[Rfam]
RNA sequence: UUACACAUAACAAUGCAAACAUAAACACACACAACACAAUGGAAAAACUCUCUUCGCUUCGACUGUUACGCUUAUCGCCCCCGUUGCGAGCAUAGUUUCAUCGUAUUGAAGAAAGUUCACUAUCCACUUUGCCCGCACGCUUACCUUGCGGGCUUUUUUUAUUCUGC
Numbered sequence: 001u002u003a004c005a006c007a008u009a010a011c012a013a014u015g016c017a018a019a020c021a022u023a024a025a026c027a028c029a030c031a032c033a034a035c036a037c038a039a040u041g042g043a044a045a046a047a048c049u050c051u052c053u054u055c056g057c058u059u060c061g062a063c064u065g066u067u068a069c070g071c072u073u074a075u076c077g078c079c080c081c082c083g084u085u086g087c088g089a090g091c092a093u094a095g096u097u098u099c100a101u102c103g104u105a106u107u108g109a110a111g112a113a114a115g116u117u118c119a120c121u122a123u124c125c126a127c128u129u130u131g132c133c134c135g136c137a138c139g140c141u142u143a144c145c146u147u148g149c150g151g152g153c154u155u156u157u158u159u160u161a162u163u164c165u166g167c
Stems, first nucleotide, its partner, number of pairs: 013022003040126004046117004051112002054109002058105001060103003065096004070091001075089004131153007
RNA: Actinobacillus sRNA 14
Organism: Targowskia paracuniculus